[Rfam]
RNA sequence: AAUCGUCACUAGGGGCGCAUUAAGCUGAGAAGUACCCUUGACCUGAUCUAUAUAAUGAUAGCGUAGGAAAGUGAAGUAAAAGCAAA
Numbered sequence: 001a002a003u004c005g006u007c008a009c010u011a012g013g014g015g016c017g018c019a020u021u022a023a024g025c026u027g028a029g030a031a032g033u034a035c036c037c038u039u040g041a042c043c044u045g046a047u048c049u050a051u052a053u054a055a056u057g058a059u060a061g062c063g064u065a066g067g068a069a070a071g072u073g074a075a076g077u078a079a080a081a082g083c084a085a086a
Base pairs, nucleotide, nucleotide: 006074007073008072009071010070011038012037013036014035016032017025018024042067043066044065045064048061049060050059051058
Notes:
Rfam assigns this 86-nucleotide sequence from Helcococcus ovis to the family "TPP riboswitch aptamer (THI element)". Lineage of the source: Bacteria > Bacillati > Tissierellia > Peptoniphilaceae > Helcococcus. The family's consensus secondary structure is taken from published work. The match comes from Rfam's covariance-model search (60 bits).